[Rfam]
RNA sequence: AAACGUGCACGGAUACCGCUGAAGAGAUUAUAUCAAGCUUUAUGCCCACAAAGUGCACGAACAUUAAAUUCCAAAUGUUUUUCGAUGAGCCUGCCCGUUUGAGUUUCGAAGCAGGAACAGAUACGGAACUUACAAGC
Numbered sequence: 001a002a003a004c005g006u007g008c009a010c011g012g013a014u015a016c017c018g019c020u021g022a023a024g025a026g027a028u029u030a031u032a033u034c035a036a037g038c039u040u041u042a043u044g045c046c047c048a049c050a051a052a053g054u055g056c057a058c059g060a061a062c063a064u065u066a067a068a069u070u071c072c073a074a075a076u077g078u079u080u081u082u083c084g085a086u087g088a089g090c091c092u093g094c095c096c097g098u099u100u101g102a103g104u105u106u107c108g109a110a111g112c113a114g115g116a117a118c119a120g121a122u123a124c125g126g127a128a129c130u131u132a133c134a135a136g137c
Stems, first nucleotide, its partner, number of pairs: 004059007018046001020044002023041004075131001077129005086119002090115005096108002
Dot-bracket structure: ...(((((((.......(.((.((((...........)))).)).)......)))))))...............(.(((((....((..(((((.((.........))..)))))..)).....))))).)......
RNA: Drosophila small cajal body-specific RNA PsiU2-35.45